This 83-nucleotide sequence belongs to the Rfam family "c-di-GMP-II-GAG riboswitch aptamer".
Rfam's curators put it in the seed alignment.

RNA sequence: ACACACACGGGAGGCUCUGACGCGCGGCCCGCACACGGCCGCCGGGACCGCGCCGAGCCACUGGCGAGACCGACCCGCAGGGU
Numbered sequence: 001a002c003a004c005a006c007a008c009g010g011g012a013g014g015c016u017c018u019g020a021c022g023c024g025c026g027g028c029c030c031g032c033a034c035a036c037g038g039c040c041g042c043c044g045g046g047a048c049c050g051c052g053c054c055g056a057g058c059c060a061c062u063g064g065c066g067a068g069a070c071c072g073a074c075c076c077g078c079a080g081g082g083u
Stems, first nucleotide, its partner, number of pairs: 001083002004080001008077004013059003022053006029046001037071002040066004
A reference for the family is Weinberg et al. (2017), "Bioinformatic analysis of riboswitch structures uncovers variant classes with altered ligand specificity", Proc Natl Acad Sci U S A. The family's consensus secondary structure is taken from published work.